The record is a 120-nucleotide sequence from bacteria symbiont BFo2 of Frankliniella occidentalis, which matches "Fumarate/nitrate reductase regulator sRNA" in Rfam. Lineage of the source: Bacteria > Pseudomonadati > Pseudomonadota > Gammaproteobacteria > Enterobacterales. It scores 88 bits against the family's covariance model. For this family Rfam cites "Reprogramming of anaerobic metabolism by the FnrS small RNA" (Durand and Storz, Mol Microbiol, 2010). It is annotated as a small RNA.
RNA sequence: GCAGGUGAAUGCAACGUCAAGCGAUGGACGUUGUGCUCCACAUUGUCUUACAUUUUGAAUUAAAGCAUAGCGUAAUUGAUUCUCAUGACCCCGGCACCUAGGCAACUAGGGCCGGUUUUU
Numbered sequence: 001g002c003a004g005g006u007g008a009a010u011g012c013a014a015c016g017u018c019a020a021g022c023g024a025u026g027g028a029c030g031u032u033g034u035g036c037u038c039c040a041c042a043u044u045g046u047c048u049u050a051c052a053u054u055u056u057g058a059a060u061u062a063a064a065g066c067a068u069a070g071c072g073u074a075a076u077u078g079a080u081u082c083u084c085a086u087g088a089c090c091c092c093g094g095c096a097c098c099u100a101g102g103c104a105a106c107u108a109g110g111g112c113c114g115g116u117u118u119u120u
Base pairs, nucleotide, nucleotide: 001046002045003044004043007038008037010035011034012033013032014031015030016029017028018027057082058081059080060079061078062077065071066070091115092114093113094112095111097109